[Rfam]
RNA sequence: UGGAAGUGAUGAAAUAGAGAUACUUGGGUGUUGAAUGUUGAGUGACUGGAAAUUUUAAUAAUACGUUAAGUAAUUCUUCUAGUUGAAUAUUUUAUAGUUAGUUAAUAGAGCCUGUGUGUGUGUGUGUGUGUGUGCUUGUGGCUAUGGAAAGGGAGCACUGAAUGGUGAUGCUGAUAUUGGAGUGCAUCUGAGGCUGUUGUAGAAAAACAUGGGUUGUUGAUUACAACAUUGCCUGUGAUUAUAACCCAAGAACAGCUCACCUAACUAGCCUAGCACCCUAAAAUCUCUAACAGGUUCAUUAAGCGUGGUCCUGUGAUCUGAUCCAA
Numbered sequence: 001u002g003g004a005a006g007u008g009a010u011g012a013a014a015u016a017g018a019g020a021u022a023c024u025u026g027g028g029u030g031u032u033g034a035a036u037g038u039u040g041a042g043u044g045a046c047u048g049g050a051a052a053u054u055u056u057a058a059u060a061a062u063a064c065g066u067u068a069a070g071u072a073a074u075u076c077u078u079c080u081a082g083u084u085g086a087a088u089a090u091u092u093u094a095u096a097g098u099u100a101g102u103u104a105a106u107a108g109a110g111c112c113u114g115u116g117u118g119u120g121u122g123u124g125u126g127u128g129u130g131u132g133u134g135c136u137u138g139u140g141g142c143u144a145u146g147g148a149a150a151g152g153g154a155g156c157a158c159u160g161a162a163u164g165g166u167g168a169u170g171c172u173g174a175u176a177u178u179g180g181a182g183u184g185c186a187u188c189u190g191a192g193g194c195u196g197u198u199g200u201a202g203a204a205a206a207a208c209a210u211g212g213g214u215u216g217u218u219g220a221u222u223a224c225a226a227c228a229u230u231g232c233c234u235g236u237g238a239u240u241a242u243a244a245c246c247c248a249a250g251a252a253c254a255g256c257u258c259a260c261c262u263a264a265c266u267a268g269c270c271u272a273g274c275a276c277c278c279u280a281a282a283a284u285c286u287c288u289a290a291c292a293g294g295u296u297c298a299u300u301a302a303g304c305g306u307g308g309u310c311c312u313g314u315g316a317u318c319u320g321a322u323c324c325a326a
Stems, first nucleotide, its partner, number of pairs: 001325004195228008204218002207215001208213001
Dot-bracket structure: ((((..............................................................................................................................................................................................((((((((.((.((....).).))..)))))))).............................................................................................)))).
RNA: Small Cajal body-specific RNA 7